The record is a 149-nucleotide RNA sequence from Bacillus gobiensis, which matches "c-di-AMP riboswitch aptamer (ydaO/yuaA leader)" in Rfam. It scores 101 bits against the family's covariance model. Rfam's curators write: This family represents a conserved RNA structure found upstream of the ydaO and yuaA genes in Bacillus subtilis and related genes in other bacteria. Pairs were carried over by alignment from the consensus structure.
RNA sequence: AUUUCUAAAUCGCUGAGACCUAAAGGUGCGGGGGAACCAUUUUUGUGGAUUGUUACACAAUCCAAAGGGGUGAAUCCUUUUAAAAGGUAGGGCUACUCAAAUGGUCCGAAUCCGACAGCUAACCUCGUAAGCGUUAUAUGAGAAGGAAG
Dot-bracket structure: ..........((((...(((....)))((((((....(............................)(((.....((((....))))..((((..........))))...))).........)))))).))))................